[Rfam]
RNA sequence: CCUCUUCACAUCCGGCGGCGAUCGCUUAUAUGACAACUUGUCGGUUUCGACCGGCUAUGGCGAUAAACUGCAGCGUGCAAUAGGCACAGCGGACCCGGGGGCGGUACCCGGCGGCUCCACCACUCUCCUCGUUUCGACGGGGAUAAUGACGGGGCCGAACUAGGAUCGACGUGUGUUGAAAGACGUUGUUUUCGCCCGGGCUGAGUAACCCGUUCAAGGCUCAAAACUCAUAAGUGCCAACGAUAACGAAGCACUUGCUCUCGCGGCGUAAUUCUAGGGGCUAACGCCCUGAAGUUACAAAGUUAGAACACGGUUGGGCCCACCGGGUAACAGAAGGGAUUCCA
Numbered sequence: 001c002c003u004c005u006u007c008a009c010a011u012c013c014g015g016c017g018g019c020g021a022u023c024g025c026u027u028a029u030a031u032g033a034c035a036a037c038u039u040g041u042c043g044g045u046u047u048c049g050a051c052c053g054g055c056u057a058u059g060g061c062g063a064u065a066a067a068c069u070g071c072a073g074c075g076u077g078c079a080a081u082a083g084g085c086a087c088a089g090c091g092g093a094c095c096c097g098g099g100g101g102c103g104g105u106a107c108c109c110g111g112c113g114g115c116u117c118c119a120c121c122a123c124u125c126u127c128c129u130c131g132u133u134u135c136g137a138c139g140g141g142g143a144u145a146a147u148g149a150c151g152g153g154g155c156c157g158a159a160c161u162a163g164g165a166u167c168g169a170c171g172u173g174u175g176u177u178g179a180a181a182g183a184c185g186u187u188g189u190u191u192u193c194g195c196c197c198g199g200g201c202u203g204a205g206u207a208a209c210c211c212g213u214u215c216a217a218g219g220c221u222c223a224a225a226a227c228u229c230a231u232a233a234g235u236g237c238c239a240a241c242g243a244u245a246a247c248g249a250a251g252c253a254c255u256u257g258c259u260c261u262c263g264c265g266g267c268g269u270a271a272u273u274c275u276a277g278g279g280g281c282u283a284a285c286g287c288c289c290u291g292a293a294g295u296u297a298c299a300a301a302g303u304u305a306g307a308a309c310a311c312g313g314u315u316g317g318g319c320c321c322a323c324c325g326g327g328u329a330a331c332a333g334a335a336g337g338g339a340u341u342c343c344a
Stems, first nucleotide, its partner, number of pairs: 040055005059196005070189007085175003089172003095111005112157007197212004202223003311325004316343003321338001
The family of this 344-nucleotide RNA sequence from Novosphingobium fluoreni is "Alphaproteobacteria transfer-messenger RNA". It is annotated as a non-coding RNA gene. Rfam links the family to the GO term RNA catabolic process. The match comes from Rfam's covariance-model search (228 bits).